[Rfam]
The record is a 106-nucleotide RNA sequence, which matches "SAM riboswitch aptamer (S box leader)" in Rfam. The match comes from Rfam's covariance-model search (93 bits).
RNA sequence: AUCUUAUCACGAGAGACUGAGGGACAGGCCCGACGACGUCCAGCAACCAUCAUUUUUUAUGAAAGGUGCUAAUUCCUGCAGAGUGUUUCAUUCUGAGAGAUAAGGU
Numbered sequence: 001a002u003c004u005u006a007u008c009a010c011g012a013g014a015g016a017c018u019g020a021g022g023g024a025c026a027g028g029c030c031c032g033a034c035g036a037c038g039u040c041c042a043g044c045a046a047c048c049a050u051c052a053u054u055u056u057u058u059a060u061g062a063a064a065g066g067u068g069c070u071a072a073u074u075c076c077u078g079c080a081g082a083g084u085g086u087u088u089c090a091u092u093c094u095g096a097g098a099g100a101u102a103a104g105g106u
Stems, first nucleotide, its partner, number of pairs: 001106008013041001015040003021031003025078004042070004047066002050062003074098001079095006